[Rfam]
RNA sequence: AAGUGUUACAGCUCUUUUACUAUUUGUCUAGAAGGUUUUUACAGUGUAGGAGCCCCA
Numbered sequence: 001a002a003g004u005g006u007u008a009c010a011g012c013u014c015u016u017u018u019a020c021u022a023u024u025u026g027u028c029u030a031g032a033a034g035g036u037u038u039u040u041a042c043a044g045u046g047u048a049g050g051a052g053c054c055c056c057a
Base pairs, nucleotide, nucleotide: 034054035053036052037051038050039049040048041047042046

This 57-nucleotide sequence from Xenopus tropicalis belongs to the Rfam family "U7 small nuclear RNA".
Animal histone pre-mRNAs are spliced by a different mechanism than nuclear pre-mRNAs and self-splicing introns.
Rfam 15.1 lists 10,439 matches to the family in 569 species.